Rfam assigns this 78-nucleotide RNA to the family "mir-458 microRNA precursor family".
On this family, see Glazov et al., Genome Res 2008: "A microRNA catalog of the developing chicken embryo identified by a deep sequencing approach".
Rfam links the family to the GO terms miRNA-mediated post-transcriptional gene silencing and RISC complex.
[Rfam]
RNA sequence: GUGCCGAUGACAGCGCCAUUUCCAGAGCUAUCAACAGUGUCAUUGUCAUAGCUCUUGGAAUGGUUCUGCCAUAAGCAC
Number, nucleotide and partner (000 for none) at each position: 001g000002u077003g076004c075005c000006g000007a072008u071009g070010a000011c068012a067013g066014c000015g064016c063017c062018a061019u060020u059021u058022c000023c000024a055025g054026a053027g052028c051029u050030a049031u048032c000033a000034a000035c000036a000037g000038u000039g000040u000041c000042a000043u000044u000045g000046u000047c000048a031049u030050a029051g028052c027053u026054c025055u024056u000057g000058g021059a020060a019061u018062g017063g016064u015065u000066c013067u012068g011069c000070c009071a008072u007073a000074a000075g004076c003077a002078c000